This 146-nucleotide sequence from Parabacteroides sp. CAG:409 belongs to the Rfam family "Bacteroidete tryptophan peptide leader RNA". Its family is annotated with S-adenosylmethionine metabolic process and regulation of gene expression in the Gene Ontology. The match comes from Rfam's covariance-model search (64 bits). The organism belongs to Parabacteroides, within Bacteria. The base pairs follow the family's consensus structure, which is taken from published work. Rfam classes the family as a cis-regulatory leader.
[Rfam]
RNA sequence: GAAUAGAAGAAAGAAAACAAAUGAGAACAUUUACAGUAAAUACAAAUUGGUGGUGGCGCCUCGUACAACUCAAGUAGUCGUAAGAGACGAAGACCUCUAUAUGUAUUUCAGUAAAUAAAUAAGAUAAAAGAUAUAAGCGGUCUGUC
Numbered sequence: 001g002a003a004u005a006g007a008a009g010a011a012a013g014a015a016a017a018c019a020a021a022u023g024a025g026a027a028c029a030u031u032u033a034c035a036g037u038a039a040a041u042a043c044a045a046a047u048u049g050g051u052g053g054u055g056g057c058g059c060c061u062c063g064u065a066c067a068a069c070u071c072a073a074g075u076a077g078u079c080g081u082a083a084g085a086g087a088c089g090a091a092g093a094c095c096u097c098u099a100u101a102u103g104u105a106u107u108u109c110a111g112u113a114a115a116u117a118a119a120u121a122a123g124a125u126a127a128a129a130g131a132u133a134u135a136a137g138c139g140g141u142c143u144g145u146c
Stems, first nucleotide, its partner, number of pairs: 036106003040102003044098001049095003057089002060086003066080001068078003